A member of the RNA family "glmS glucosamine-6-phosphate activated ribozyme aptamer" from Calditerricola satsumensis, 167 nucleotides long.
This entry contains a glucosamine-6-phosphate activated ribozyme that is found in the mRNA for GlmS. GlmS is an enzyme that uses fructose-6-phosphate and glutamine to generate glucosamine-6-phosphate. The ribozyme catalyses self cleavage of the glmS mRNA that is thought to regulate GlmS activity.

RNA sequence: UUUAAACGGAAAGCGCCAGCACUGCCGCGGGACGCCGUUGCGGCAGUGGACGAGGAGGAGGAGCAUCGAGCCGUCGGCGGAUGCCUCCCGGUGCGCCACCGGCGCCGUAAGCGGGGCGCCGAAAACGGGGAGGCGACUUCCCGGACAAGGCACCCGCACGGGUGGAG
Numbered sequence: 001u002u003u004a005a006a007c008g009g010a011a012a013g014c015g016c017c018a019g020c021a022c023u024g025c026c027g028c029g030g031g032a033c034g035c036c037g038u039u040g041c042g043g044c045a046g047u048g049g050a051c052g053a054g055g056a057g058g059a060g061g062a063g064c065a066u067c068g069a070g071c072c073g074u075c076g077g078c079g080g081a082u083g084c085c086u087c088c089c090g091g092u093g094c095g096c097c098a099c100c101g102g103c104g105c106c107g108u109a110a111g112c113g114g115g116g117c118g119c120c121g122a123a124a125a126c127g128g129g130g131a132g133g134c135g136a137c138u139u140c141c142c143g144g145a146c147a148a149g150g151c152a153c154c155c156g157c158a159c160g161g162g163u164g165g166a167g
Stems, first nucleotide, its partner, number of pairs: 020048008029039001057088005066077004089107006114155003118151001126143007
By type it is a riboswitch. Lineage of the source: Bacteria > Bacillati > Bacillota > Bacilli > Calditerricola. It scores 84 bits against the family's covariance model.